Rfam assigns this 50-nucleotide RNA from Gillisella ampelina to the family "Guanidine-II riboswitch aptamer (mini-ykkC)". The organism belongs to Gillisella ampelina, within Bacteria. The base pairs follow the family's consensus structure, which is taken from published work. It scores 38 bits against the family's covariance model.

[Rfam]
RNA sequence: UGACCGGGACGGCCCGGUCGCAUCCAUCGGGCUUCACCGGGACGACCCGG
Numbered sequence: 001u002g003a004c005c006g007g008g009a010c011g012g013c014c015c016g017g018u019c020g021c022a023u024c025c026a027u028c029g030g031g032c033u034u035c036a037c038c039g040g041g042a043c044g045a046c047c048c049g050g
Base pairs, nucleotide, nucleotide: 001020002019003018004017005016006015007014008013037050038049039048040047041046